[Rfam]
RNA sequence: GAGUUUGGCGGCUAGGGUUCCGGUGCGUUUUGCAUGGCUGGUCCGAGAGCUGCCACCGGCAGGGGGAGACAUCCCUUCCGGAUGCACGGCGGGACAAAAGCCCGGGAGAC
Numbered sequence: 001g002a003g004u005u006u007g008g009c010g011g012c013u014a015g016g017g018u019u020c021c022g023g024u025g026c027g028u029u030u031u032g033c034a035u036g037g038c039u040g041g042u043c044c045g046a047g048a049g050c051u052g053c054c055a056c057c058g059g060c061a062g063g064g065g066g067a068g069a070c071a072u073c074c075c076u077u078c079c080g081g082a083u084g085c086a087c088g089g090c091g092g093g094a095c096a097a098a099a100g101c102c103c104g105g106g107a108g109a110c
Base pairs, nucleotide, nucleotide: 007054008053009052010051011050012049015044016043020041021040022038023035024034025033026032027031055083056081057080058079059078061076062075063074064073065072085105087108091103092102093101
RNA: Guanidine-I riboswitch aptamer